[Rfam]
RNA: Small nucleolar RNA SNORA40
Nucleotides: 113
Base pairs, nucleotide, nucleotide: 002054003053004052005051006050007049008048009047011045014040015039016038017037018036019035020034021033026031064110065109067107068106071103072102073101074100080092081091083089
Number, partner (000 for none) and nucleotide at each position: 001000a002054g003053c004052a005051u006050u007049u008048g009047u010000g011045u012000g013000u014040g015039u016038u017037u018036u019035u020034g021033u022000u023000u024000g025000a026031c027000u028000u029000g030000u031026g032000g033021a034020c035019a036018a037017a038016g039015a040014u041000u042000u043000a044000u045011a046000g047009a048008c049007a050006a051005g052004u053003g054002c055000a056000a057000a058000a059000a060000a061000u062000a063000a064110a065109u066000c067107c068106u069000c070000u071103u072102u073101u074100a075000c076000a077000a078000c079000c080092c081091a082000g083089a084000a085000c086000g087000u088000a089083u090000a091081u092080g093000a094000u095000a096000c097000a098000u099000a100074u101073a102072a103071g104000c105000a106068g107067g108000a109065a110064u111000a112000c113000c